Overview: The family of this 80-nucleotide sequence from Erwinia amylovora is "Peptidase-S11 RNA". Pairs were carried over by alignment from the consensus structure, which is taken from published work.

RNA sequence: CUUAUUAUGCCGGUGCCAGCCCCCGUACUCUGACGGGAAGCGGCGUGUGGCACCCACACCUGAAUAACCAGCCGUGAAGU
Numbered sequence: 001c002u003u004a005u006u007a008u009g010c011c012g013g014u015g016c017c018a019g020c021c022c023c024c025g026u027a028c029u030c031u032g033a034c035g036g037g038a039a040g041c042g043g044c045g046u047g048u049g050g051c052a053c054c055c056a057c058a059c060c061u062g063a064a065u066a067a068c069c070a071g072c073c074g075u076g077a078a079g080u
Base pairs, nucleotide, nucleotide: 015044016043017042019041020040022037023036024035025034045059046058047057048056049055050054

Rfam classes the family as a cis-regulatory element.